This 309-nucleotide sequence from Tatumella ptyseos belongs to the Rfam family "Soft rot Enterobacteriaceae Rev 39 5'UTR".
RNA sequence: AGGGGUUGUCAUCUUUCGUCAUCCUAUGGUAACUCUUUAAGCACUAUAUCGAAUUAAGCGAAUGUUGAACUGAUUAUGAAAGCCCUUCUCCGAGUGAUUAGCCUGGUCGUGAUUAGCGUGGUGGUGAUUAUUCUACCAUCGUGCGGGGCUGCACUCGGAGAAAGAAAGGCUUAGAAAUCAAGCCUUAAUCGAAAGAGAACCCCCGCACCGACAGGUCCGGGGGUUUUUUUUUGGUGUUCAGGCCUUGUAGCAUUUUAAUGUGGAGUGGAACAUGAAUGGCAGCAUAACGUUCUGUCUCUCCCGGCAAAA
Numbered sequence: 001a002g003g004g005g006u007u008g009u010c011a012u013c014u015u016u017c018g019u020c021a022u023c024c025u026a027u028g029g030u031a032a033c034u035c036u037u038u039a040a041g042c043a044c045u046a047u048a049u050c051g052a053a054u055u056a057a058g059c060g061a062a063u064g065u066u067g068a069a070c071u072g073a074u075u076a077u078g079a080a081a082g083c084c085c086u087u088c089u090c091c092g093a094g095u096g097a098u099u100a101g102c103c104u105g106g107u108c109g110u111g112a113u114u115a116g117c118g119u120g121g122u123g124g125u126g127a128u129u130a131u132u133c134u135a136c137c138a139u140c141g142u143g144c145g146g147g148g149c150u151g152c153a154c155u156c157g158g159a160g161a162a163a164g165a166a167a168g169g170c171u172u173a174g175a176a177a178u179c180a181a182g183c184c185u186u187a188a189u190c191g192a193a194a195g196a197g198a199a200c201c202c203c204c205g206c207a208c209c210g211a212c213a214g215g216u217c218c219g220g221g222g223g224u225u226u227u228u229u230u231u232u233g234g235u236g237u238u239c240a241g242g243c244c245u246u247g248u249a250g251c252a253u254u255u256u257a258a259u260g261u262g263g264a265g266u267g268g269a270a271c272a273u274g275a276a277u278g279g280c281a282g283c284a285u286a287a288c289g290u291u292c293u294g295u296c297u298c299u300c301c302c303g304g305c306a307a308a309a
Stems, first nucleotide, its partner, number of pairs: 005033008016021001038073001040071002044067001046065003050058001084263002089258001092254002097248002100245001101243006108118003120140005127134001142159001144157004163189001168185002171182002194229012207216003265295006272285003
From bacteria cultured under starvation conditions. It scores 137 bits against the family's covariance model. Pairs were carried over by alignment from the consensus structure, which was predicted with RNAfold.